[Rfam]
RNA: NiCo (Nickel/Cobalt) riboswitch aptamer
RNA sequence: ACAGUACAAACUGAUCAGGCGGGGCGCACUUUUUAUAAGCGAUCGCAGCCGGGCCCUUUCGGGCAGCAGAUGAAUGAAAUGGUGAAGCAUCUGCGGGACAGUU
Numbered sequence: 001a002c003a004g005u006a007c008a009a010a011c012u013g014a015u016c017a018g019g020c021g022g023g024g025c026g027c028a029c030u031u032u033u034u035a036u037a038a039g040c041g042a043u044c045g046c047a048g049c050c051g052g053g054c055c056c057u058u059u060c061g062g063g064c065a066g067c068a069g070a071u072g073a074a075u076g077a078a079a080u081g082g083u084g085a086a087g088c089a090u091c092u093g094c095g096g097g098a099c100a101g102u103u
Base pairs, nucleotide, nucleotide: 010102011101012100013099016097018050019049020048022044023043025041026040027039053064054063055062056061066094067093068092069091070090071089